[Rfam]
RNA sequence: UUUUUGCUUGUAAAAUAAUUGCAAGAUAACAACUAAGAUUUGAGAGCUUUAUGUAACUUUUUAGAAACAGGUGGGGGAAUUCAUUUGUUACUAAAUGACCGUUACGACUCAAUAGAAGCGAUUGCGAUUUUCGCAAUCUUAUUUUUUAACCCAAAAAAGUAGUGCAAAUAAUAUGA
Numbered sequence: 001u002u003u004u005u006g007c008u009u010g011u012a013a014a015a016u017a018a019u020u021g022c023a024a025g026a027u028a029a030c031a032a033c034u035a036a037g038a039u040u041u042g043a044g045a046g047c048u049u050u051a052u053g054u055a056a057c058u059u060u061u062u063a064g065a066a067a068c069a070g071g072u073g074g075g076g077g078a079a080u081u082c083a084u085u086u087g088u089u090a091c092u093a094a095a096u097g098a099c100c101g102u103u104a105c106g107a108c109u110c111a112a113u114a115g116a117a118g119c120g121a122u123u124g125c126g127a128u129u130u131u132c133g134c135a136a137u138c139u140u141a142u143u144u145u146u147u148a149a150c151c152c153a154a155a156a157a158a159g160u161a162g163u164g165c166a167a168a169u170a171a172u173a174u175g176a
Stems, first nucleotide, its partner, number of pairs: 003029002007025007040112005052106006060095005066089010118165002120138008141160006
A member of the RNA family "nqrA-II ncRNA motif" from Pseudactinobacillus ducreyi, 176 nucleotides long. For this family Rfam cites "The discovery of novel noncoding RNAs in 50 bacterial genomes" (Narunsky et al., Nucleic Acids Res, 2024). NCBI's taxonomy places the organism under Bacteria, Pseudomonadota, Pasteurellaceae, Pseudactinobacillus, Pseudactinobacillus ducreyi. The family's consensus secondary structure is taken from published work.